RNA: mir-393 microRNA precursor family
RNA sequence: GGGGGAAGCAUCCAAAGGGAUCGCAUUGAUCCAUCAUUCCUUCCAUUCUUCCAUGGCGCGCGUCGUCUACAAGCACGGCUUUGACGGAUCAUGCGAUCCUUUUGGAGGCUUCCUC
Numbered sequence: 001g002g003g004g005g006a007a008g009c010a011u012c013c014a015a016a017g018g019g020a021u022c023g024c025a026u027u028g029a030u031c032c033a034u035c036a037u038u039c040c041u042u043c044c045a046u047u048c049u050u051c052c053a054u055g056g057c058g059c060g061c062g063u064c065g066u067c068u069a070c071a072a073g074c075a076c077g078g079c080u081u082u083g084a085c086g087g088a089u090c091a092u093g094c095g096a097u098c099c100u101u102u103u104g105g106a107g108g109c110u111u112c113c114u115c
Stems, first nucleotide, its partner, number of pairs: 002115005008109002011106011023094004028090005